[Rfam]
RNA sequence: GUGUUAAUGCUAAUCGUGAUAGGGGUUUUCAAUUCUUACUGACUCCUACAUGUUAGCAUUAGUAU
Numbered sequence: 001g002u003g004u005u006a007a008u009g010c011u012a013a014u015c016g017u018g019a020u021a022g023g024g025g026u027u028u029u030c031a032a033u034u035c036u037u038a039c040u041g042a043c044u045c046c047u048a049c050a051u052g053u054u055a056g057c058a059u060u061a062g063u064a065u
Stems, first nucleotide, its partner, number of pairs: 004062011020048004025043003
Notes: The family of this 65-nucleotide sequence from Hymenochirus boettgeri is "mir-155 microRNA precursor family". NCBI's taxonomy places the organism under Eukaryota, Craniata, Euteleostomi, Batrachia, Hymenochirus.